[Rfam]
The family of this 176-nucleotide RNA sequence from Cetraspora pellucida is "small nucleolar RNA snR35". The family's RNA type in Rfam is H/ACA-box small nucleolar RNA. The base pairs follow the family's consensus structure, which was predicted with RNAalifold.
RNA sequence: AACUUUUGGUUUUUUUUUUCCUAAUCGCCUCAGUGUUGCUCUAUAUCACGUUAUUCUUAAAAUUGAUAUUGGAGUGUCAAAAUGAGCUUGCGUAUACAAAUCAUAAGAACAUCCUAGUACCCUUUUUGCACAAUUGACCUUCCAAAUUGUGUGAAGGGUCGAUAGUUCAAACACUA
Numbered sequence: 001a002a003c004u005u006u007u008g009g010u011u012u013u014u015u016u017u018u019u020c021c022u023a024a025u026c027g028c029c030u031c032a033g034u035g036u037u038g039c040u041c042u043a044u045a046u047c048a049c050g051u052u053a054u055u056c057u058u059a060a061a062a063u064u065g066a067u068a069u070u071g072g073a074g075u076g077u078c079a080a081a082a083u084g085a086g087c088u089u090g091c092g093u094a095u096a097c098a099a100a101u102c103a104u105a106a107g108a109a110c111a112u113c114c115u116a117g118u119a120c121c122c123u124u125u126u127u128g129c130a131c132a133a134u135u136g137a138c139c140u141u142c143c144a145a146a147u148u149g150u151g152u153g154a155a156g157g158g159u160c161g162a163u164a165g166u167u168c169a170a171a172c173a174c175u176a
Base pairs, nucleotide, nucleotide: 022096023095026092027091038075039074040073041072042071046066047065048064107168108167109166110165123157124156125155126154127153128152129151130150131149133147134146